[Rfam]
RNA sequence: AAUACUAGGCAAACGCUGCAUAAUUAUGUAGAGGAAAGUCCAUGCUUGCACUAUCUGUGAUGAUAGUAGUGAUUGUGCAUAGGGUAACCUAUGGUAGUUUAUAACUAACGGCGUCGAACUUAUCCAGUUUGGAUAUUAUUAGAUGUAAAGUGCCGCAGUGACGAAUCUUUUGGUAACAAAAGGGUGAAACGGGUAAACCCCACAAGCAAGAAACCCAAAUUAUGGUAGGGGAAUCUGAUUUAGGGAAUAAGAACCGAAGUUGGAAUCGAGUAAUCGAUAGAUAGAUGUUUGCCCCUUUCUUAUGAAAGGACAGAACGUGGCUUAUUAGU
Numbered sequence: 001a002a003u004a005c006u007a008g009g010c011a012a013a014c015g016c017u018g019c020a021u022a023a024u025u026a027u028g029u030a031g032a033g034g035a036a037a038g039u040c041c042a043u044g045c046u047u048g049c050a051c052u053a054u055c056u057g058u059g060a061u062g063a064u065a066g067u068a069g070u071g072a073u074u075g076u077g078c079a080u081a082g083g084g085u086a087a088c089c090u091a092u093g094g095u096a097g098u099u100u101a102u103a104a105c106u107a108a109c110g111g112c113g114u115c116g117a118a119c120u121u122a123u124c125c126a127g128u129u130u131g132g133a134u135a136u137u138a139u140u141a142g143a144u145g146u147a148a149a150g151u152g153c154c155g156c157a158g159u160g161a162c163g164a165a166u167c168u169u170u171u172g173g174u175a176a177c178a179a180a181a182g183g184g185u186g187a188a189a190c191g192g193g194u195a196a197a198c199c200c201c202a203c204a205a206g207c208a209a210g211a212a213a214c215c216c217a218a219a220u221u222a223u224g225g226u227a228g229g230g231g232a233a234u235c236u237g238a239u240u241u242a243g244g245g246a247a248u249a250a251g252a253a254c255c256g257a258a259g260u261u262g263g264a265a266u267c268g269a270g271u272a273a274u275c276g277a278u279a280g281a282u283a284g285a286u287g288u289u290u291g292c293c294c295c296u297u298u299c300u301u302a303u304g305a306a307a308g309g310a311c312a313g314a315a316c317g318u319g320g321c322u323u324a325u326u327a328g329u
Base pairs, nucleotide, nucleotide: 004329005328006327007325008293009292010291011290012289013288014287016031017030018029019028020027021026036323037322038321040320041319042318043317044316045210046209047208048207049206050067051066052065053064054063055062073205074204075203076202077201078093079092080091081090082089083088094109095107096106097105098104099103110200111199113144114143115142121135122134123133124132150198151197152194153193154192166183167182168181169180170179171178172177214230215229216228234264235263236262237261238260239259240258265278266277267276268275269274295308296307297306298305299304
Rfam assigns this 329-nucleotide RNA from Acholeplasma sp. CAG:878 to the family "Bacterial RNase P class B".
Pairs were carried over by alignment from the consensus structure, which is taken from published work.
The source organism's lineage runs through Bacteria, Mycoplasmatota, Mollicutes, Acholeplasmataceae and Acholeplasma.
On this family, see Frank and Pace, Annu Rev Biochem 1998: "Ribonuclease P: unity and diversity in a tRNA processing ribozyme".
From the family's description: Ribonuclease P (RNase P) is a ubiquitous endoribonuclease, found in archaea, bacteria and eukarya as well as chloroplasts and mitochondria. Its best characterised activity is the generation of mature 5'-ends of tRNAs by cleaving the 5'-leader elements of precursor-tRNAs.